[Rfam]
RNA sequence: GUGGUUUUGAAAUGAACAAGUUCCUUAUAUUCAAUUUAUGCAUAUGAUCACUUUGUCAGCAUUGUUUUUUAUUAUAAAGGUGAUCAUUAUAGGUUUACACUAGGG
Numbered sequence: 001g002u003g004g005u006u007u008u009g010a011a012a013u014g015a016a017c018a019a020g021u022u023c024c025u026u027a028u029a030u031u032c033a034a035u036u037u038a039u040g041c042a043u044a045u046g047a048u049c050a051c052u053u054u055g056u057c058a059g060c061a062u063u064g065u066u067u068u069u070u071a072u073u074a075u076a077a078a079g080g081u082g083a084u085c086a087u088u089a090u091a092g093g094u095u096u097a098c099a100c101u102a103g104g105g
Base pairs, nucleotide, nucleotide: 039099040098042096044094055084056083057082058081060079062077
Source information:
The record is a 105-nucleotide RNA from Lupinus albus, which matches "Small nucleolar RNA snoR99" in Rfam. The family's RNA type in Rfam is H/ACA-box small nucleolar RNA. A search with the family's covariance model found it, with a score of 46 bits. Lineage of the source: Eukaryota > Embryophyta > rosids > core genistoids > Lupinus. The family has 9 seed sequences and 733 matches in Rfam 15.1. The literature on the family includes a 2002 paper in Curr Biol by Marker et al., "Experimental RNomics: identification of 140 candidates for small non-messenger RNAs in the plant Arabidopsis thaliana".